[Rfam]
RNA sequence: GGGCGGUGACGACAAACAACAUUUCUCGAUUCUGAAAAUGUUUAUCUUGAUAAACAUGGACCUUAUAUACUUGAUGACAGAGUUUAUGCGUGUCUGAGCCUC
Dot-bracket structure: ((((.............................................................................................)))).
Rfam assigns this 102-nucleotide sequence from Ziziphus jujuba to the family "small nucleolar RNA snoR126". Rfam links the family to the GO terms nucleolus and RNA processing. Lineage of the source: Eukaryota > Spermatophyta > Pentapetalae > Rhamnaceae > Ziziphus jujuba. The base pairs follow the family's consensus structure, which was predicted with RNAalifold. On this family, see Chen and Wu, Nucleic Acids Res 2009: "Mining small RNA sequencing data: a new approach to identify small nucleolar RNAs in Arabidopsis". The family has 4 seed sequences and 423 matches in Rfam 15.1.